[Rfam]
RNA sequence: AAGAUCCUGCUGAUUCUACCAUUACUUUUGAACAUUUAUUGUAAAAAUAUUUUCAUAGUCUAAUGGGAAAGACAGCAGGAUUC
Dot-bracket structure: ..((((((((((.((.(.((((((...(...(....((((.....))))...)...)...)))))).).)).)))))))))).
Numbered sequence: 001a002a003g004a005u006c007c008u009g010c011u012g013a014u015u016c017u018a019c020c021a022u023u024a025c026u027u028u029u030g031a032a033c034a035u036u037u038a039u040u041g042u043a044a045a046a047a048u049a050u051u052u053u054c055a056u057a058g059u060c061u062a063a064u065g066g067g068a069a070a071g072a073c074a075g076c077a078g079g080a081u082u083c
Stems, first nucleotide, its partner, number of pairs: 003082010014071002017068001019066006028057001032053001037049004

This 83-nucleotide sequence from Nannospalax galili belongs to the Rfam family "mir-1305 microRNA precursor family". A search with the family's covariance model found it, with a score of 72 bits.